About this RNA
Shown here is a 516-nucleotide part of an RNA from Zygotorulaspora mrakii, a member of the family "Eukaryotic large subunit ribosomal RNA". It scores 3346 bits against the family's covariance model. Taxonomically the source falls in Zygotorulaspora (Eukaryota, Ascomycota, saccharomyceta, Saccharomycetaceae).
[Rfam]
RNA sequence: UAGAAUAAUGUAGAUAAGGGAAGUCGGCAAAAUAGAUCCGUAACUUCGGGAUAAGGAUUGGCUCUAAGGGUCGGGCAGUGAGGGCCUUUGUCAGACGCCGCCGGGCGUGCGUGCGGGCUGUGCGUGGCCUCUUUCGGGGGGCUGUGCACGGGCUGCGCGUGUGCCUGGUGGUAGACGGCGCUGGUAGGCGCACCUCGGUGUCGCCGUCGCUUGCUGCGAUUAACGAUCAACUUAGAACUGGUACGGACAAGGGGAAUCUGACUGUCUAAUUAAAACAUAGCAUUGCGAUGGUCAGAAAGUGAUGUUGACGCAAUGUGAUUUCUGCCCAGUGCUCUGAAUGUCAAAGUGAAGAAAUUCAACCAAGCGCGGGUAAACGGCGGGAGUAACUAUGACUCUCUUAAGGUAGCCAAAUGCCUCGUCAUCUAAUUAGUGACGCGCAUGAAUGGAUUAACGAGAUUCCCACUGUCCCUAUCUACUAUCUAGCGAAACCACAGCCAAGGGAACGGGCUUGGCAGA
Number, nucleotide and partner (000 for none) at each position: 001u482002a481003g480004a479005a000006u000007a000008a000009u000010g476011u475012a474013g473014a472015u471016a470017a000018g468019g467020g466021a000022a000023g000024u000025c000026g000027g000028c000029a000030a000031a000032a000033u000034a000035g059036a058037u057038c056039c055040g000041u000042a000043a000044c049045u000046u000047c000048g000049g044050g000051a000052u000053a000054a000055g039056g038057a037058u036059u035060g239061g238062c000063u236064c235065u234066a233067a232068g231069g228070g227071u226072c225073g224074g000075g217076c216077a215078g214079u213080g212081a211082g210083g000084g185085c184086c183087u000088u000089u180090g179091u178092c000093a000094g000095a000096c000097g172098c171099c170100g169101c168102c167103g166104g165105g164106c163107g162108u161109g160110c159111g158112u157113g156114c155115g154116g153117g000118c151119u150120g149121u148122g147123c146124g145125u144126g143127g142128c141129c140130u139131c138132u137133u000134u000135c000136g000137g132138g131139g130140g129141g128142c127143u126144g125145u124146g123147c122148a121149c120150g119151g118152g000153c116154u115155g114156c113157g112158c111159g110160u109161g108162u107163g106164c105165c104166u103167g102168g101169u100170g099171g098172u097173a000174g000175a000176c000177g000178g091179c090180g089181c000182u000183g086184g085185u084186a000187g000188g000189c000190g000191c000192a000193c000194c000195u000196c000197g000198g000199u000200g000201u000202c000203g000204c000205c000206g000207u000208c000209g000210c082211u081212u080213g079214c078215u077216g076217c075218g000219a000220u000221u000222a000223a000224c073225g072226a071227u070228c069229a000230a000231c068232u067233u066234a065235g064236a063237a000238c061239u060240g244241g000242u000243a000244c240245g000246g000247a000248c000249a000250a000251g000252g461253g460254g459255a458256a457257u456258c455259u453260g452261a000262c000263u277264g276265u275266c000267u000268a000269a000270u000271u000272a000273a000274a000275a265276c264277a263278u000279a000280g316281c315282a314283u313284u312285g311286c310287g309288a000289u000290g000291g303292u302293c301294a300295g000296a000297a000298a000299g000300u294301g293302a292303u291304g000305u000306u000307g000308a000309c287310g286311c285312a284313a283314u282315g281316u280317g000318a000319u000320u447321u446322c445323u000324g378325c377326c376327c000328a000329g375330u374331g371332c370333u369334c368335u000336g367337a000338a000339u366340g365341u364342c000343a000344a000345a000346g000347u358348g357349a356350a355351g000352a000353a000354a000355u350356u349357c348358a347359a000360c000361c000362a000363a000364g341365c340366g339367c336368g334369g333370g332371u331372a000373a000374a330375c329376g326377g325378c324379g397380g396381g395382a394383g393384u392385a000386a000387c000388u000389a000390u000391g000392a384393c383394u382395c381396u380397c379398u402399u000400a000401a000402g398403g000404u000405a000406g000407c000408c000409a000410a000411a000412u000413g000414c000415c000416u000417c000418g434419u433420c432421a431422u430423c000424u000425a000426a000427u000428u000429a000430g422431u421432g420433a419434c418435g000436c000437g000438c000439a000440u000441g000442a000443a000444u000445g322446g321447a320448u000449u000450a000451a000452c260453g259454a000455g258456a257457u256458u255459c254460c253461c252462a000463c000464u000465g000466u020467c019468c018469c000470u016471a015472u014473c013474u012475a011476c010477u000478a000479u004480c003481u002482a001483g000484c000485g000486a000487a000488a000489c000490c000491a000492c000493a000494g000495c512496c511497a510498a509499g508500g000501g000502a000503a000504c000505g000506g000507g000508c499509u498510u497511g496512g495513c000514a000515g000516a000